[Rfam]
The record is a 95-nucleotide RNA from Helcococcus kunzii, which matches "SAM riboswitch aptamer (S box leader)" in Rfam.
It scores 76 bits against the family's covariance model.
The source organism's lineage runs through Bacteria, Bacillati, Peptoniphilaceae, Helcococcus and Helcococcus kunzii.
RNA sequence: AAAUUAUCAAGAGAGAUGGAGGGAAAGGCCCUACGAAGUCCAGCAACCUAUUAAAUUAGGUGCUAAAUCCUGCAGGAAUACCUGAAAGAUAAGUA
Dot-bracket structure: .(.(((((....(.(((...(((..[[[)))......))))((((.((.((...))..))))))...(]]].((((....))))..)))))).).